[Rfam]
RNA sequence: CAGGUUCCGGUUCACGCCCCAAUGCAGCAGGUCAGACGGGCGACCCGGCGGCC
Numbered sequence: 001c002a003g004g005u006u007c008c009g010g011u012u013c014a015c016g017c018c019c020c021a022a023u024g025c026a027g028c029a030g031g032u033c034a035g036a037c038g039g040g041c042g043a044c045c046c047g048g049c050g051g052c053c
Stems, first nucleotide, its partner, number of pairs: 003053003007048004015042005
The record is a 53-nucleotide sequence from Mycolicibacterium chitae, which matches "L31-Actinobacteria ribosomal protein leader" in Rfam. It scores 47 bits against the family's covariance model. The base pairs follow the family's consensus structure, which is taken from published work. It is annotated as a cis-regulatory leader.